[Rfam]
RNA sequence: GGGCAUUCAGAAGGCUUGCUCUCUGGGCUACAAGCAGAGAACCUAGUUUCUCCCUCUAUCCGCCCAGGGGAAAGUCCCCGGACUCGUGGCAGAAAGUGCCCUGGGUAAUUCCAGCGUCGAUCAGCGCCUCACCGUUGUAGCUGAGACGUUCAUGAGAACUGAGCUUGGUAGUCGCUGGUCGACAUUGUCAGCGUUAAUAGUAAUGCAAGCAGUUACUGACGCGUGAACAGAACGGGGCUCAUUCUCGGAAUGCA
Numbered sequence: 001g002g003g004c005a006u007u008c009a010g011a012a013g014g015c016u017u018g019c020u021c022u023c024u025g026g027g028c029u030a031c032a033a034g035c036a037g038a039g040a041a042c043c044u045a046g047u048u049u050c051u052c053c054c055u056c057u058a059u060c061c062g063c064c065c066a067g068g069g070g071a072a073a074g075u076c077c078c079c080g081g082a083c084u085c086g087u088g089g090c091a092g093a094a095a096g097u098g099c100c101c102u103g104g105g106u107a108a109u110u111c112c113a114g115c116g117u118c119g120a121u122c123a124g125c126g127c128c129u130c131a132c133c134g135u136u137g138u139a140g141c142u143g144a145g146a147c148g149u150u151c152a153u154g155a156g157a158a159c160u161g162a163g164c165u166u167g168g169u170a171g172u173c174g175c176u177g178g179u180c181g182a183c184a185u186u187g188u189c190a191g192c193g194u195u196a197a198u199a200g201u202a203a204u205g206c207a208a209g210c211a212g213u214u215a216c217u218g219a220c221g222c223g224u225g226a227a228c229a230g231a232a233c234g235g236g237g238c239u240c241a242u243u244c245u246c247g248g249a250a251u252g253c254a
Stems, first nucleotide, its partner, number of pairs: 003253006010246002014210006022068007037052005073239002076237004088100004101114005117182003121178006129168001139165003148159004212224002

Rfam assigns this 254-nucleotide sequence from Lates calcarifer to the family "RNase MRP". It is annotated as a ribozyme. It scores 154 bits against the family's covariance model. On this family, see Rosenblad et al., Nucleic Acids Res 2006: "Inventory and analysis of the protein subunits of the ribonucleases P and MRP provides further evidence of homology between the yeast and human enzymes".